[Rfam]
RNA sequence: AUUGGUCAUCGGGUUCACUCCUCCUCCCAGAACCCGGUGACGAAUACGGCAUCUCCUCCUCCCAGCCGUAUUCAAGAUCAGGCCGCGCAUCCUCCUCCCGCGCGGCCUUUUUC
Numbered sequence: 001a002u003u004g005g006u007c008a009u010c011g012g013g014u015u016c017a018c019u020c021c022u023c024c025u026c027c028c029a030g031a032a033c034c035c036g037g038u039g040a041c042g043a044a045u046a047c048g049g050c051a052u053c054u055c056c057u058c059c060u061c062c063c064a065g066c067c068g069u070a071u072u073c074a075a076g077a078u079c080a081g082g083c084c085g086c087g088c089a090u091c092c093u094c095c096u097c098c099c100g101c102g103c104g105g106c107c108u109u110u111u112u113c
Stems, first nucleotide, its partner, number of pairs: 006040003010036007042073009080108009
Notes: The family of this 113-nucleotide sequence from Brucella gallinifaecis is "Alphaproteobacterial ar14". Rfam links the family to the GO term biological process involved in symbiotic interaction. Pairs were carried over by alignment from the consensus structure. Taxonomically the source falls in Brucella (Bacteria, Pseudomonadati, Pseudomonadota, Brucellaceae). About the family: Smr14C2 was renamed NfeR1 (Nodule Formation Efficiency RNA) highly expressed in salt stress and during the symbiotic interaction on legume roots. A search with the family's covariance model found it, with a score of 82 bits.